Rfam assigns this 151-nucleotide RNA from Rhizobium deserti to the family "Rhizobiales sRNA Atu_C7". Rfam classes the family as a small RNA. Pairs were carried over by alignment from the consensus structure, which was predicted with WAR. For this family Rfam cites "Deep sequencing uncovers numerous small RNAs on all four replicons of the plant pathogen Agrobacterium tumefaciens" (Wilms et al., RNA Biol, 2012).
[Rfam]
RNA sequence: CCGUUGCGCACUCCUGAACCAGAAUGCUUCGUGAGUUCCGUUCGAGUUCUUGUUUCUCCUGGCGCGUCUUAAGCCGCAGGUGGUCCUCCCCCACCUGCAGGUGAUGCGCCCGCCUCGCCUCGCUGUUCGCUUAUGCGCAGCGAGGCUUUUU
Numbered sequence: 001c002c003g004u005u006g007c008g009c010a011c012u013c014c015u016g017a018a019c020c021a022g023a024a025u026g027c028u029u030c031g032u033g034a035g036u037u038c039c040g041u042u043c044g045a046g047u048u049c050u051u052g053u054u055u056c057u058c059c060u061g062g063c064g065c066g067u068c069u070u071a072a073g074c075c076g077c078a079g080g081u082g083g084u085c086c087u088c089c090c091c092c093a094c095c096u097g098c099a100g101g102u103g104a105u106g107c108g109c110c111c112g113c114c115u116c117g118c119c120u121c122g123c124u125g126u127u128c129g130c131u132u133a134u135g136c137g138c139a140g141c142g143a144g145g146c147u148u149u150u151u
Base pairs, nucleotide, nucleotide: 061110062109063108064107065106066105067104068103076098077097078096079095080094081093082092117146118145119144120143121142122141123140124139125138128135